[Rfam]
Annotation: This 141-nucleotide RNA from Agitococcus lubricus belongs to the Rfam family "Manganese Mn2+ riboswitch aptamer (yybP-ykoY)".
RNA sequence: CCUGACCCUGUCUUUGGGGAGUAGUCGUUGUUGAUUUUUCAACAAGUGUACAUCAACACAGUUGUUCCACAGAACAUGGUGUACACGGCAGAUGUAUCAUAACACAUUGCUUGGCGAGACCAUUGAUUUAACCAUCUGUUC
Number, nucleotide and partner (000 for none) at each position: 001c000002c000003u000004g000005a000006c000007c000008c000009u000010g000011u000012c000013u000014u000015u000016g000017g000018g000019g000020a000021g000022u000023a000024g000025u000026c000027g000028u000029u044030g043031u042032u000033g000034a000035u000036u000037u000038u000039u000040c000041a000042a031043c030044a029045a000046g086047u085048g084049u083050a082051c081052a080053u079054c078055a077056a000057c000058a000059c000060a000061g000062u000063u076064g075065u074066u073067c072068c000069a000070c000071a000072g067073a066074a065075c064076a063077u055078g054079g053080u052081g051082u050083a049084c048085a047086c046087g140088g139089c138090a137091g136092a135093u134094g000095u000096a000097u000098c000099a000100u000101a000102a000103c000104a000105c000106a000107u000108u000109g000110c000111u000112u000113g000114g000115c000116g000117a000118g000119a000120c000121c000122a000123u000124u000125g000126a000127u000128u000129u000130a000131a000132c000133c000134a093135u092136c091137u090138g089139u088140u087141c000